[Rfam]
RNA: Small nucleolar RNA SNORA5
Organism: Mauremys mutica
RNA sequence: CGCAGCUAUGUCAAAUUCAGUACUCACCUUCUCCAUGGUGGGUACUGGCCCAAAGAGCUGCCACAGAAACAUCUGUAGUUCAUGGGCCCCACAUCUCUCUCUCUCUGGACCCUGGGGAUAAAUAUUUGCUACAGACACUG
Numbered sequence: 001c002g003c004a005g006c007u008a009u010g011u012c013a014a015a016u017u018c019a020g021u022a023c024u025c026a027c028c029u030u031c032u033c034c035a036u037g038g039u040g041g042g043u044a045c046u047g048g049c050c051c052a053a054a055g056a057g058c059u060g061c062c063a064c065a066g067a068a069a070c071a072u073c074u075g076u077a078g079u080u081c082a083u084g085g086g087c088c089c090c091a092c093a094u095c096u097c098u099c100u101c102u103c104u105c106u107g108g109a110c111c112c113u114g115g116g117g118a119u120a121a122a123u124a125u126u127u128g129c130u131a132c133a134g135a136c137a138c139u140g
Base pairs, nucleotide, nucleotide: 002061003060004059005058018047019046020045021044022043023042024041025040026039027038028037075132076131077130078129079128087117088116089115090114091113
Dot-bracket structure: .((((............(((((((((((........)))))))))))..........)))).............(((((.......(((((.....................)))))..........)))))........